A member of the RNA family "Manganese Mn2+ riboswitch aptamer (yybP-ykoY)" from Paramagnetospirillum magneticum, 181 nucleotides long.
About the family: This RNA was originally discovered in E. coli during a large scale screen and was named SraF. The family was later found to exist upstream of related families of protein genes in many bacteria, including the the yybP and ykoK genes in B. subtilis. The specific functions of these proteins are unknown, but this structured RNA element may be involved in their genetic regulation as a riboswitch.
Taxonomically the source falls in Paramagnetospirillum magneticum (Bacteria, Pseudomonadota, Alphaproteobacteria, Paramagnetospirillum).
The pairing is the family consensus, mapped onto this sequence.

[Rfam]
RNA sequence: CCGCGCGUCAUUGGGGAGUAGCCGCCUUCGGGUAUCAGAAGGGGGCGCGUCAACAGACUUGGGCCUUUGGCCCAUGGCGCGUCCGGCAGAUCAGCCUGGCGAGACCUUUGGCUUCGGAUUCCUUGCGUCCACGGGAUUGGGCGGGUUUCCGGGCCAUCGGUCAUGCGUUGCCCAAUCCCCC
Dot-bracket structure: .........................(.(...........)).((((((((((.......(((((.....)))))))))))))))((..(((...................................................................................)))..))